[Rfam]
RNA: mir-337 microRNA precursor family
RNA sequence: CCCGUCAGCAGUUGGGGGGUGGGAACGGCUCCAUGCAGGAGGUGACGUACAGUUCCCCAGCUCCUAGAUGGUGCCUUUCUUCAUCCCCUUCAA
Dot-bracket structure: .............((((((((((((.(((.((((..(((((.((..(......)...)).)))))..)))).))).))).)))))))))....